Shown here is an 81-nucleotide sequence from Podarcis lilfordi, a member of the family "mir-15 microRNA precursor family".
RNA sequence: GUCUGCUGUGCUCUAGCAGCACGUAAAUACUGGAGUUUAAAAUUGCCUCCAGUAUUGCUUUGCUGCUUUAGCGCAGCUGGA
Numbered sequence: 001g002u003c004u005g006c007u008g009u010g011c012u013c014u015a016g017c018a019g020c021a022c023g024u025a026a027a028u029a030c031u032g033g034a035g036u037u038u039a040a041a042a043u044u045g046c047c048u049c050c051a052g053u054a055u056u057g058c059u060u061u062g063c064u065g066c067u068u069u070a071g072c073g074c075a076g077c078u079g080g081a
Base pairs, nucleotide, nucleotide: 002080003079005077006076015067016066017065018064019063020062021061023059026056027055028054029053030052031051032050033049034048035047

About this RNA
Gene Ontology terms of the family: miRNA-mediated post-transcriptional gene silencing and RISC complex. It scores 61 bits against the family's covariance model. Lineage of the source: Eukaryota > Dipnotetrapodomorpha > Squamata > Laterata > Podarcis. From the family's description: This family represents the related mir-15a and mir-15b sequences. In humans miR-15a and miR-16 are clustered within 0.5 kb at 13q14. This region has been shown to be deleted in more than half of B cell chronic lymphocytic leukaemias (CLL). For this family Rfam cites "Identification of novel genes coding for small expressed RNAs" (Lagos-Quintana et al., Science, 2001).